[Rfam]
RNA sequence: AUAAUGAUACUUCCGUCCAGCCACAGCCCUAUAGGAAUAUAGGAUCACGCAAUGGGGGCGGCCACAGGAGAACCCUGCGGGGGUUUAGAUACCCAUGA
Numbered sequence: 001a002u003a004a005u006g007a008u009a010c011u012u013c014c015g016u017c018c019a020g021c022c023a024c025a026g027c028c029c030u031a032u033a034g035g036a037a038u039a040u041a042g043g044a045u046c047a048c049g050c051a052a053u054g055g056g057g058g059c060g061g062c063c064a065c066a067g068g069a070g071a072a073c074c075c076u077g078c079g080g081g082g083g084u085u086u087a088g089a090u091a092c093c094c095a096u097g098a
Base pairs, nucleotide, nucleotide: 012095013061014060015059016058017057018056062080063079066076067075068074081094082093083092
Rfam assigns this 98-nucleotide RNA sequence to the family "pemK RNA".
The sequence is in the family's curated seed alignment.